[Rfam]
RNA sequence: AUCUUAUUGGAUGAUGACUGCCACGUGUCAUGUUUUGAUUGGUCAAUGAAAACAAUAAUGUAUUUCGUCUUUCAUGGAAUUGACAUCCAAUUAGAACAUGACACGUGGUAGUCAUCAUCC
Numbered sequence: 001a002u003c004u005u006a007u008u009g010g011a012u013g014a015u016g017a018c019u020g021c022c023a024c025g026u027g028u029c030a031u032g033u034u035u036u037g038a039u040u041g042g043u044c045a046a047u048g049a050a051a052a053c054a055a056u057a058a059u060g061u062a063u064u065u066c067g068u069c070u071u072u073c074a075u076g077g078a079a080u081u082g083a084c085a086u087c088c089a090a091u092u093a094g095a096a097c098a099u100g101a102c103a104c105g106u107g108g109u110a111g112u113c114a115u116c117a118u119c120c
Base pairs, nucleotide, nucleotide: 020109021108022107023106025104026103029100030099031098033096034095035094036093038091039090040089041088042087
RNA: MIR1520 microRNA precursor family